The family of this 300-nucleotide RNA from Notodromas monacha is "Metazoan signal recognition particle RNA".
By type it is a non-coding RNA gene.
Gene Ontology terms of the family: SRP-dependent cotranslational protein targeting to membrane, signal sequence recognition and signal recognition particle, endoplasmic reticulum targeting.
About the family: The signal recognition particle (SRP) is a universally conserved ribonucleoprotein.
The family's consensus secondary structure is taken from published work.
Clan: SRP clan.
Lineage of the source: Eukaryota > Metazoa > Panarthropoda > Cypridocopina > Notodromas.
RNA sequence: GCUGGGAGUCGUAGCGGGCCCCUGUAAUCCAGCGAUUGGAGGCUAAGGUCGGUGGAUGGUGUGCGGUCAGGGGUUCUCGCUGCUGGUGGUACCAUGACGAUCGGGCGUCCGCGCUAAGCUUGGCGUCAAUAUGGUUCACCCGGAGGAAUCCGGGAGGACCAGGUUGUGUGAAGCGGAUGGAAACCGGGCCAGGGGGGAAACCCAGCAGCCAAAACCUCCCGCGUUAAGCAGUAGUGGGACGGCGCCUGUGAAUGGACCCUGGUAACGAGCCUGACCUACACUCGCUAGACCCGACUUUUU
Numbered sequence: 001g002c003u004g005g006g007a008g009u010c011g012u013a014g015c016g017g018g019c020c021c022c023u024g025u026a027a028u029c030c031a032g033c034g035a036u037u038g039g040a041g042g043c044u045a046a047g048g049u050c051g052g053u054g055g056a057u058g059g060u061g062u063g064c065g066g067u068c069a070g071g072g073g074u075u076c077u078c079g080c081u082g083c084u085g086g087u088g089g090u091a092c093c094a095u096g097a098c099g100a101u102c103g104g105g106c107g108u109c110c111g112c113g114c115u116a117a118g119c120u121u122g123g124c125g126u127c128a129a130u131a132u133g134g135u136u137c138a139c140c141c142g143g144a145g146g147a148a149u150c151c152g153g154g155a156g157g158a159c160c161a162g163g164u165u166g167u168g169u170g171a172a173g174c175g176g177a178u179g180g181a182a183a184c185c186g187g188g189c190c191a192g193g194g195g196g197g198a199a200a201c202c203c204a205g206c207a208g209c210c211a212a213a214a215c216c217u218c219c220c221g222c223g224u225u226a227a228g229c230a231g232u233a234g235u236g237g238g239a240c241g242g243c244g245c246c247u248g249u250g251a252a253u254g255g256a257c258c259c260u261g262g263u264a265a266c267g268a269g270c271c272u273g274a275c276c277u278a279c280a281c282u283c284g285c286u287a288g289a290c291c292c293g294a295c296u297u298u299u300u
Base pairs, nucleotide, nucleotide: 001043002042003041004023005022006021008019009018010017028040029039030038045298046297047296048295049294050293051292052291057287058286059285060284061283065276066275067274068273069272070271071270076269077268078267079266081264082263083262084261085260086259088258089257092255093254094253095252102248103247104246105245106244107243108242109238110237112236113235114234115233116232118229119228120227121226122225123224124223125222126221127166128165129164130163132161133160134159135158136157137156139154140153141152142151143150144149168174169173175220176219179216180215187210188209189208194203195202196201